[Rfam]
RNA sequence: UAGGUUUGUCCUAAGUCAAACCAUUUUAAGUUUGACCAAAUUUAUAGGAAAGAGCAUCAAUAUUUAUGAUACCGAAUAUGUAGAAUAUGAAAAUAUAUUUCAUGAUAAAUCUAAUAGUACUUAUUUGAUAUCAUAAACAUUAGUAUUUUUGUGUAUAAAUUUGGUCAAAUUUGAAAUAGUUUGACUUAGGACAAACCUAA
Numbered sequence: 001u002a003g004g005u006u007u008g009u010c011c012u013a014a015g016u017c018a019a020a021c022c023a024u025u026u027u028a029a030g031u032u033u034g035a036c037c038a039a040a041u042u043u044a045u046a047g048g049a050a051a052g053a054g055c056a057u058c059a060a061u062a063u064u065u066a067u068g069a070u071a072c073c074g075a076a077u078a079u080g081u082a083g084a085a086u087a088u089g090a091a092a093a094u095a096u097a098u099u100u101c102a103u104g105a106u107a108a109a110u111c112u113a114a115u116a117g118u119a120c121u122u123a124u125u126u127g128a129u130a131u132c133a134u135a136a137a138c139a140u141u142a143g144u145a146u147u148u149u150u151g152u153g154u155a156u157a158a159a160u161u162u163g164g165u166c167a168a169a170u171u172u173g174a175a176a177u178a179g180u181u182u183g184a185c186u187u188a189g190g191a192c193a194a195a196c197c198u199a200a
Stems, first nucleotide, its partner, number of pairs: 005195005011189011023177004031169005043155004048150003056144002059141003063137006073127005

The record is a 200-nucleotide sequence from Miscanthus lutarioriparius, which matches "MIR1435 microRNA precursor family" in Rfam. The family has 3 seed sequences and 1,765 matches in Rfam 15.1. The family's consensus secondary structure was predicted with RNAalifold. Rfam links the family to the GO terms RISC complex and miRNA-mediated post-transcriptional gene silencing.